[Rfam]
The record is a 274-nucleotide RNA from Lonchura striata, which matches "Small Cajal body-specific RNA 7" in Rfam. Rfam classes the family as a small Cajal body RNA. The pairing is the family consensus, mapped onto this sequence. Its family is annotated with nucleolus and RNA processing in the Gene Ontology.

RNA sequence: GAGAAGUGAUGAGACGGAGAUAAUUGGGUUUGGAUGGAGUGUGUGUGUGAGGGGGGGAACUGAGGCAGAGCUGGGCAGGCUGUGUGUGGGGUGUGUGGGGGCUCUCGUGGGGGCACUGAUGGCAGUGCUGAGCCAGGAGUGCAUCUGAGGCGUGUUGGGCACCUCGGGGCCCCUCUGCAACACUGCCGGUGAUUAAAGCCCCAAAAAGCCACCAGAGAGCCCCAGGCAGCCCAAAGGUCUCCAGGGUCACCAGUGAUCCUCUGCUCUGAUCUCA
Numbered sequence: 001g002a003g004a005a006g007u008g009a010u011g012a013g014a015c016g017g018a019g020a021u022a023a024u025u026g027g028g029u030u031u032g033g034a035u036g037g038a039g040u041g042u043g044u045g046u047g048u049g050a051g052g053g054g055g056g057g058a059a060c061u062g063a064g065g066c067a068g069a070g071c072u073g074g075g076c077a078g079g080c081u082g083u084g085u086g087u088g089g090g091g092u093g094u095g096u097g098g099g100g101g102c103u104c105u106c107g108u109g110g111g112g113g114c115a116c117u118g119a120u121g122g123c124a125g126u127g128c129u130g131a132g133c134c135a136g137g138a139g140u141g142c143a144u145c146u147g148a149g150g151c152g153u154g155u156u157g158g159g160c161a162c163c164u165c166g167g168g169g170c171c172c173c174u175c176u177g178c179a180a181c182a183c184u185g186c187c188g189g190u191g192a193u194u195a196a197a198g199c200c201c202c203a204a205a206a207a208g209c210c211a212c213c214a215g216a217g218a219g220c221c222c223c224a225g226g227c228a229g230c231c232c233a234a235a236g237g238u239c240u241c242c243a244g245g246g247u248c249a250c251c252a253g254u255g256a257u258c259c260u261c262u263g264c265u266c267u268g269a270u271c272u273c274a
Stems, first nucleotide, its partner, number of pairs: 001273004153182005158173002162169002